[Rfam]
RNA sequence: CGCCGGGGCAGUGCUUGGGGCCAGUGGCCAGGCCACCCUCCCAGGAGGUAGCAGUGAUCUGUGGCUAGUUCCUGGCAGCUGGUG
Numbered sequence: 001c002g003c004c005g006g007g008g009c010a011g012u013g014c015u016u017g018g019g020g021c022c023a024g025u026g027g028c029c030a031g032g033c034c035a036c037c038c039u040c041c042c043a044g045g046a047g048g049u050a051g052c053a054g055u056g057a058u059c060u061g062u063g064g065c066u067a068g069u070u071c072c073u074g075g076c077a078g079c080u081g082g083u084g
Stems, first nucleotide, its partner, number of pairs: 004082001006080001008079002017073004026065001028063001029061002032058001034056003
RNA: NoRC associated RNA, pRNA
Organism: Canis lupus